Rfam assigns this 169-nucleotide sequence from Alectura lathami to the family "Small Cajal body specific RNA 16". Lineage of the source: Eukaryota > Metazoa > Archelosauria > Archosauria > Alectura. By type it is a small Cajal body RNA. On this family, see Darzacq et al., EMBO J 2002: "Cajal body-specific small nuclear RNAs: a novel class of 2'-O-methylation and pseudouridylation guide RNAs". It scores 120 bits against the family's covariance model. The base pairs follow the family's consensus structure, which was predicted with RNAfold. About the family: scaRNAs are a specific class of small nuclear RNAs which localise to the Cajal bodies and guide the modification of RNA polymerase II transcribed spliceosomal RNAs U1, U2, U4, U5 and U12. ACA47 belongs to the H/ACA box class of guide RNAs as it has the predicted hairpin-hinge-hairpin-tail structure, the conserved H/ACA-box motifs and is found associated with GAR1. ACA47 is predicted to guide the pseudouridylation of residue U5 of the U1 spliceosomal snRNA.
RNA sequence: GGGGGCCUGGGGACGGCUGCUGGCGGCUGCAUCUCAGCCUGGUGCCUGCCGGCCUCACCCGCGCCCCAGAUCAACCCCCAGCGGGCUCCCCGCUGGUUCCUCCUGUGCAGUAACAGGUGUGAGCAUCCAUGCAGCGUUCUGAUGGUCAUGUAUGAUACUGCAUACAAUA
Numbered sequence: 001g002g003g004g005g006c007c008u009g010g011g012g013a014c015g016g017c018u019g020c021u022g023g024c025g026g027c028u029g030c031a032u033c034u035c036a037g038c039c040u041g042g043u044g045c046c047u048g049c050c051g052g053c054c055u056c057a058c059c060c061g062c063g064c065c066c067c068a069g070a071u072c073a074a075c076c077c078c079c080a081g082c083g084g085g086c087u088c089c090c091c092g093c094u095g096g097u098u099c100c101u102c103c104u105g106u107g108c109a110g111u112a113a114c115a116g117g118u119g120u121g122a123g124c125a126u127c128c129a130u131g132c133a134g135c136g137u138u139c140u141g142a143u144g145g146u147c148a149u150g151u152a153u154g155a156u157a158c159u160g161c162a163u164a165c166a167a168u169a
Stems, first nucleotide, its partner, number of pairs: 003066004008061003015054004019049002022046003025039005078096008104164009114154002120148003124144004131138001